[Rfam]
RNA: Streptomyces sRNA 4677
RNA sequence: GGCACCGUGACGGGGGCUCCCCACCUGCCAUCGGGUGCUUUGUCACUCACUCGGGUGACAUAGGACAACUGGGCUGGAUUCGGGACGGGUUGCCGUGUCUAUGCUCGCCCCGACAACCACAGACAUGAGACGGCCCCCGCUGGGAAUGAGAAUCCCGGGCGAGGGCCUGACCACCGAGGAAGUCAGGACCUUCCCG
Numbered sequence: 001g002g003c004a005c006c007g008u009g010a011c012g013g014g015g016g017c018u019c020c021c022c023a024c025c026u027g028c029c030a031u032c033g034g035g036u037g038c039u040u041u042g043u044c045a046c047u048c049a050c051u052c053g054g055g056u057g058a059c060a061u062a063g064g065a066c067a068a069c070u071g072g073g074c075u076g077g078a079u080u081c082g083g084g085a086c087g088g089g090u091u092g093c094c095g096u097g098u099c100u101a102u103g104c105u106c107g108c109c110c111c112g113a114c115a116a117c118c119a120c121a122g123a124c125a126u127g128a129g130a131c132g133g134c135c136c137c138c139g140c141u142g143g144g145a146a147u148g149a150g151a152a153u154c155c156c157g158g159g160c161g162a163g164g165g166c167c168u169g170a171c172c173a174c175c176g177a178g179g180a181a182g183u184c185a186g187g188a189c190c191u192u193c194c195c196g
Base pairs, nucleotide, nucleotide: 043058044057045056046055047054048053073109075107076106077105132167133166134165135164136163138161139160140159142156143155144154145153178194179193180192181191182190